[Rfam]
RNA sequence: GUCGUGGUGGCCGAGUGGUUAAGGCGUUGGACUCGAAGUCCAAUGGGGUUUCCCCGCGCAGGUGCGAAUCCUGCCCGCGAGG
Dot-bracket structure: .((((((..(((..........))).(((((.......)))))..............(((((.......)))))))))))..
A member of the RNA family "tRNA" from Fasciola hepatica, 82 nucleotides long.
Rfam classes the family as a transfer RNA.
The family's consensus secondary structure is taken from published work.